[Rfam]
RNA sequence: AUUAAACUUAAGUCUAUUGUUAUUAUUCAUAUUAAUUUUUUUAAAAGUUUUUAAGUUUUAUGCUAGUUUAUUUUAAAAUAAUUUUAUUUGUCAUAUUUUAGGAAUAGAUAAUAAUAAUUUAUAAUUUUGAUUAGAUGUAUUUGUUAAUGCUAUUUAAUGGGUGUGGAAAUAUGUAUAAAAUUUAAUAAAAUAUUAUUACAAUAAAUUACAUUUACAUAUUAGUCAGAAAUGGAUGCCAGCCGUUGCGGUAAUUUCUAUGCUUUUAAAUAUUAUACAUUUAUCAUAAAAUAUUGUUAUUUUUAUACUUUAACAAAAAAAAUAAAAGCAACAUAUCUUUUUUGUUUUUAAACACCUUUUGGUAUAUGCAAAUACGAAAUUAUAGUAAUUAUAUAUUAUAUUAUAUUAUAUUUAUUCAUAUAAUUAACGCAUAAAAAGUAAUUAAAUUUGAUACCAUGCUAAGGCAAAAAUAUUGAAAUUGUAAAUGUUAUAAUCAAAAGUUACUAUUUAUAUAAAAUUCUAAAUUUUAGAUAAAAUAAUAAAUUCAAAAGGUAUUGUUGCCCACCAAUUUUUAUAAUAAAAAUAACGUGCAGUAAUCAAUAUAUUUAUAAAAAUAUAUUUUAUAAAAAU
Numbered sequence: 001a002u003u004a005a006a007c008u009u010a011a012g013u014c015u016a017u018u019g020u021u022a023u024u025a026u027u028c029a030u031a032u033u034a035a036u037u038u039u040u041u042u043a044a045a046a047g048u049u050u051u052u053a054a055g056u057u058u059u060a061u062g063c064u065a066g067u068u069u070a071u072u073u074u075a076a077a078a079u080a081a082u083u084u085u086a087u088u089u090g091u092c093a094u095a096u097u098u099u100a101g102g103a104a105u106a107g108a109u110a111a112u113a114a115u116a117a118u119u120u121a122u123a124a125u126u127u128u129g130a131u132u133a134g135a136u137g138u139a140u141u142u143g144u145u146a147a148u149g150c151u152a153u154u155u156a157a158u159g160g161g162u163g164u165g166g167a168a169a170u171a172u173g174u175a176u177a178a179a180a181u182u183u184a185a186u187a188a189a190a191u192a193u194u195a196u197u198a199c200a201a202u203a204a205a206u207u208a209c210a211u212u213u214a215c216a217u218a219u220u221a222g223u224c225a226g227a228a229a230u231g232g233a234u235g236c237c238a239g240c241c242g243u244u245g246c247g248g249u250a251a252u253u254u255c256u257a258u259g260c261u262u263u264u265a266a267a268u269a270u271u272a273u274a275c276a277u278u279u280a281u282c283a284u285a286a287a288a289u290a291u292u293g294u295u296a297u298u299u300u301u302a303u304a305c306u307u308u309a310a311c312a313a314a315a316a317a318a319a320u321a322a323a324a325g326c327a328a329c330a331u332a333u334c335u336u337u338u339u340u341g342u343u344u345u346u347a348a349a350c351a352c353c354u355u356u357u358g359g360u361a362u363a364u365g366c367a368a369a370u371a372c373g374a375a376a377u378u379a380u381a382g383u384a385a386u387u388a389u390a391u392a393u394u395a396u397a398u399u400a401u402a403u404u405a406u407a408u409u410u411a412u413u414c415a416u417a418u419a420a421u422u423a424a425c426g427c428a429u430a431a432a433a434a435g436u437a438a439u440u441a442a443a444u445u446u447g448a449u450a451c452c453a454u455g456c457u458a459a460g461g462c463a464a465a466a467a468u469a470u471u472g473a474a475a476u477u478g479u480a481a482a483u484g485u486u487a488u489a490a491u492c493a494a495a496a497g498u499u500a501c502u503a504u505u506u507a508u509a510u511a512a513a514a515u516u517c518u519a520a521a522u523u524u525u526a527g528a529u530a531a532a533a534u535a536a537u538a539a540a541u542u543c544a545a546a547a548g549g550u551a552u553u554g555u556u557g558c559c560c561a562c563c564a565a566u567u568u569u570u571a572u573a574a575u576a577a578a579a580a581u582a583a584c585g586u587g588c589a590g591u592a593a594u595c596a597a598u599a600u601a602u603u604u605a606u607a608a609a610a611a612u613a614u615a616u617u618u619u620a621u622a623a624a625a626a627u
Base pairs, nucleotide, nucleotide: 016591017590018589019588037081038080040078041077042076044074045073046072047071048070052066054064055063056062102414103413104412105411106410107409109405110404111403112402113401114396115395116394117393118392120390121389122388123387124386125385126384130380131379133377136373137372138371139370140369141368142367143366144365147362148361149360150359151358152357160353161352162351163350164349167346168345169344171342172341173340185297186296187295188294190292201281202280203279204278205277206276217265218264221261222260223259225256226255227254228253229252230251234250235249236248237247239246240245313339314338315337316336317335319333323331434541436539438537439536440535441534444531445530449526450525454520461492465488467486497518500515502513504511548559549558550557551556560587561586562585565581566580567579568578569577570576571575596617597616598615599614600613601612602611603610604609

Background: Trypanosomatid mitochondrial small subunit ribosomal RNA: a 627-nucleotide RNA sequence from Trypanosoma cruzi. On this family, see Sharma et al., Proc Natl Acad Sci U S A 2009: "Structure of a mitochondrial ribosome with minimal RNA". Taxonomically the source falls in Schizotrypanum (Eukaryota, Trypanosomatida, Trypanosomatidae, Trypanosoma). The family is grouped with related families in Rfam's "SSU clan". Rfam's curators put it in the seed alignment.